Shown here is a 273-nucleotide RNA from Nannospalax galili, a member of the family "Mason-Pfizer monkey virus packaging signal". The organism belongs to Nannospalax, within Eukaryota.
[Rfam]
Nucleotides: 273
Stems, first nucleotide, its partner, number of pairs: 006031003013025002037047002082125001084123001085121002092115001096110004129152003134148001136146002157200002160196002208248006217235005258273001260271004
Number, partner (000 for none) and nucleotide at each position: 001000u002000g003000u004000c005000g006031c007030c008029c009000a010000a011000c012000a013025u014024g015000g016000g017000g018000c019000c020000u021000g022000g023000a024014u025013a026000c027000u028000g029008g030007g031006g032000a033000c034000a035000a036000a037047g038046u039000g040000a041000g042000g043000g044000a045000g046038a047037u048000g049000a050000c051000g052000a053000a054000g055000g056000a057000a058000a059000a060000a061000g062000g063000g064000a065000u066000g067000c068000g069000c070000g071000c072000c073000c074000a075000c076000u077000c078000a079000a080000a081000u082125a083000a084123u085121u086120c087000g088000g089000a090000g091000a092115c093000g094000u095000c096110g097109c098108g099107g100000g101000a102000g103000c104000c105000u106000g107099c108098u109097g110096c111000a112000a113000c114000u115092g116000a117000g118000c119000c120086g121085a122000a123084g124000g125082u126000a127000a128000g129152u130151u131150g132000g133000u134148c135000a136146u137145g138000u139000a140000a141000a142000u143000c144000a145137u146136g147000g148134g149000g150131c151130a152129a153000g154000a155000a156000u157200u158199a159000a160196g161195u162000c163000a164000g165000c166000a167000u168000c169000a170000g171000a172000u173000u174000u175000a176000u177000g178000u179000g180000a181000u182000a183000c184000a185000g186000u187000u188000a189000a190000g191000a192000g193000a194000a195161g196160c197000u198000c199158u200157g201000c202000a203000g204000g205000c206000a207000a208248g209247a210246g211245g212244a213243g214000u215000a216000a217235a218234g219233g220232u221231u222000a223000a224000a225000a226000c227000u228000g229000a230000g231221g232220a233219u234218u235217u236000a237000u238000u239000u240000c241000a242000u243213u244212u245211c246210u247209u248208u249000g250000a251000u252000u253000u254000u255000a256000u257000a258273a259000a260271g261270g262269a263268c264000a265000u266000u267000u268263g269262u270261c271260c272000c273258u
Overview: Rfam's curators write: This family represents a group of sequences that are related to the Mason-Pfizer monkey virus (MPMV) packaging signal. The packaging signal is located in the 5' UTR and is required for specific RNA encapsidation. It is annotated as a cis-regulatory element. Pairs were carried over by alignment from the consensus structure, which was predicted with PFOLD.